[Rfam]
RNA sequence: CCUCUUCCCAACCCGGCUAAGACCGCCUAUAUAAAGGGCGUCGGGCAACCGACUAUGGCGAUAAACGCUGCGUGGAAUAGACGUUACGGACCCGGGGGCGGUACCCGGCGUCUCCACCAUUUCCGGCCCGCGUACCUGGGACGGCUUCUGGGGACGAAAUAGGAUCGACGUGCGUAAUAAAGACCCAGUUUUCGCUCGGUAUGGUUCCGCCGUCAUCGGGCUAAACUCAGAAGUGCCAACGACAAUCGUGUAGCACUCGCUGCCUAAUUAAUUAGGCAAGCGCGGUUCGGGGGGCACCGGGCAACAGAAGCCCCCCACU
Numbered sequence: 001c002c003u004c005u006u007c008c009c010a011a012c013c014c015g016g017c018u019a020a021g022a023c024c025g026c027c028u029a030u031a032u033a034a035a036g037g038g039c040g041u042c043g044g045g046c047a048a049c050c051g052a053c054u055a056u057g058g059c060g061a062u063a064a065a066c067g068c069u070g071c072g073u074g075g076a077a078u079a080g081a082c083g084u085u086a087c088g089g090a091c092c093c094g095g096g097g098g099c100g101g102u103a104c105c106c107g108g109c110g111u112c113u114c115c116a117c118c119a120u121u122u123c124c125g126g127c128c129c130g131c132g133u134a135c136c137u138g139g140g141a142c143g144g145c146u147u148c149u150g151g152g153g154a155c156g157a158a159a160u161a162g163g164a165u166c167g168a169c170g171u172g173c174g175u176a177a178u179a180a181a182g183a184c185c186c187a188g189u190u191u192u193c194g195c196u197c198g199g200u201a202u203g204g205u206u207c208c209g210c211c212g213u214c215a216u217c218g219g220g221c222u223a224a225a226c227u228c229a230g231a232a233g234u235g236c237c238a239a240c241g242a243c244a245a246u247c248g249u250g251u252a253g254c255a256c257u258c259g260c261u262g263c264c265u266a267a268u269u270a271a272u273u274a275g276g277c278a279a280g281c282g283c284g285g286u287u288c289g290g291g292g293g294g295c296a297c298c299g300g301g302c303a304a305c306a307g308a309a310g311c312c313c314c315c316c317a318c319u
Stems, first nucleotide, its partner, number of pairs: 040053005057196005067189004072184002082174003086171003092108005109156007197212004202223003206220003283299004289316006
Notes:
This 319-nucleotide sequence from Elstera litoralis belongs to the Rfam family "Alphaproteobacteria transfer-messenger RNA". Its Rfam clan is "tRNA clan". A search with the family's covariance model found it, with a score of 266 bits. For this family Rfam cites "Phylogenetic analysis of tmRNA secondary structure" (Williams and Bartel, RNA, 1996). Rfam links the family to the GO term RNA catabolic process. The source organism's lineage runs through Bacteria, Alphaproteobacteria, Rhodospirillales, Rhodospirillaceae and Elstera. Bacterial tmRNA, also known as 10Sa RNA or SsrA, is named for its dual tRNA and mRNA-like properties.